[Rfam]
RNA: Small nucleolar RNA SNORA44
RNA sequence: CUGCAUGCUUCCCAAGGGCAUUGGCUCCACGUAGCCUCUGGCUCUCCAAAAGCGUGCCAGAUUAACCUGGGGAGACUUUGUCAGUCUGGACCUGCCAUGUCUGUGGCUGUCACUCUACUCUCCUACAAUC
Numbered sequence: 001c002u003g004c005a006u007g008c009u010u011c012c013c014a015a016g017g018g019c020a021u022u023g024g025c026u027c028c029a030c031g032u033a034g035c036c037u038c039u040g041g042c043u044c045u046c047c048a049a050a051a052g053c054g055u056g057c058c059a060g061a062u063u064a065a066c067c068u069g070g071g072g073a074g075a076c077u078u079u080g081u082c083a084g085u086c087u088g089g090a091c092c093u094g095c096c097a098u099g100u101c102u103g104u105g106g107c108u109g110u111c112a113c114u115c116u117a118c119u120c121u122c123c124u125a126c127a128a129u130c
Base pairs, nucleotide, nucleotide: 012040017036018035019034022031023030069123070122071121072120073119074118084110085109087103088102089101090100